Rfam assigns this 97-nucleotide sequence to the family "pemK RNA".
[Rfam]
RNA sequence: AUCAUGAUACUUCUGUCCAGCCACAGCCCCGCAGGGAUGCGGGAUCACGCAAUGGGGGCAGCCCGUGGAGAACCCUCGGGAGGUGCGAUUCCUAUGA
Numbered sequence: 001a002u003c004a005u006g007a008u009a010c011u012u013c014u015g016u017c018c019a020g021c022c023a024c025a026g027c028c029c030c031g032c033a034g035g036g037a038u039g040c041g042g043g044a045u046c047a048c049g050c051a052a053u054g055g056g057g058g059c060a061g062c063c064c065g066u067g068g069a070g071a072a073c074c075c076u077c078g079g080g081a082g083g084u085g086c087g088a089u090u091c092c093u094a095u096g097a
Stems, first nucleotide, its partner, number of pairs: 012094001013061006062080003067075002081093003